[Rfam]
RNA sequence: CACCAGGUUGAUUCUGCCUGACUGUGACGCUAGCCUCGGGGAUUAAGCCAUGCAAGUCUGUGAAGUUUCGUUAUGAAACAGUGAACGGCUCAGUAAAACACGUCUAUCUACCCACUUGUCUAAUAUAACCCCGGGAAACUGUGGCUAAUAUUGUGGAUGAGGGCGUGACCUAUCAGCUAGUCGGUACGGUAAAGGCGUACGGAGGCGAUGACGGGUAACGGGGAAUAUGGGUUUUAUUCCGGAGAGGGAGCCUGAGAGAUGGCUACCACUCCAAGGACGGCAGAGCGCGAAACUUACCCAAUGAACAUUGAGGUAGUUACGGGGUGUGACAUUCUAUGACCGUGUGUUAAAAGCAGGGUUAAGACAUUGGAGGGCAAGUCUGGUGCCAGCAGCCGCGGUAAUUUCCAGCUCCAAUAGCGUCUGUGUUUAUUGCUG
Numbered sequence: 001c002a003c004c005a006g007g008u009u010g011a012u013u014c015u016g017c018c019u020g021a022c023u024g025u026g027a028c029g030c031u032a033g034c035c036u037c038g039g040g041g042a043u044u045a046a047g048c049c050a051u052g053c054a055a056g057u058c059u060g061u062g063a064a065g066u067u068u069c070g071u072u073a074u075g076a077a078a079c080a081g082u083g084a085a086c087g088g089c090u091c092a093g094u095a096a097a098a099c100a101c102g103u104c105u106a107u108c109u110a111c112c113c114a115c116u117u118g119u120c121u122a123a124u125a126u127a128a129c130c131c132c133g134g135g136a137a138a139c140u141g142u143g144g145c146u147a148a149u150a151u152u153g154u155g156g157a158u159g160a161g162g163g164c165g166u167g168a169c170c171u172a173u174c175a176g177c178u179a180g181u182c183g184g185u186a187c188g189g190u191a192a193a194g195g196c197g198u199a200c201g202g203a204g205g206c207g208a209u210g211a212c213g214g215g216u217a218a219c220g221g222g223g224a225a226u227a228u229g230g231g232u233u234u235u236a237u238u239c240c241g242g243a244g245a246g247g248g249a250g251c252c253u254g255a256g257a258g259a260u261g262g263c264u265a266c267c268a269c270u271c272c273a274a275g276g277a278c279g280g281c282a283g284a285g286c287g288c289g290a291a292a293c294u295u296a297c298c299c300a301a302u303g304a305a306c307a308u309u310g311a312g313g314u315a316g317u318u319a320c321g322g323g324g325u326g327u328g329a330c331a332u333u334c335u336a337u338g339a340c341c342g343u344g345u346g347u348u349a350a351a352a353g354c355a356g357g358g359u360u361a362a363g364a365c366a367u368u369g370g371a372g373g374g375c376a377a378g379u380c381u382g383g384u385g386c387c388a389g390c391a392g393c394c395g396c397g398g399u400a401a402u403u404u405c406c407a408g409c410u411c412c413a414a415u416a417g418c419g420u421c422u423g424u425g426u427u428u429a430u431u432g433c434u435g
Base pairs, nucleotide, nucleotide: 004020005019006018007017008016022425026421027420028419029418030417031416033325034324035323036322037321038320039318040317041288047286048285049283051282052281053280056082057081059080060079061078065074066073089244090243091242099167100166101165102164103163104162105161107160108159112156113155114154115153122152123151129144130143132141133140134139169215170214171213176206177205178204181203182202184200185199186198187197188196219241220240221239222238223234224233225232226231246267247266249264250263251262269279270277271276294315296314297313298312302310303309304308339359340358341357343355344354367414368413369412370411371410372409380408381407382406383405389396390395
The record is a 435-nucleotide part of an RNA from Amblyospora californica, which matches "Microsporidia small subunit ribosomal RNA" in Rfam. The sequence is in the family's curated seed alignment. For this family Rfam cites "Crystal structure of the ribosome at 5.5 A resolution" (Yusupov et al., Science, 2001). The family's consensus secondary structure is taken from published work. The organism belongs to Amblyospora, within Eukaryota. Clan: SSU clan.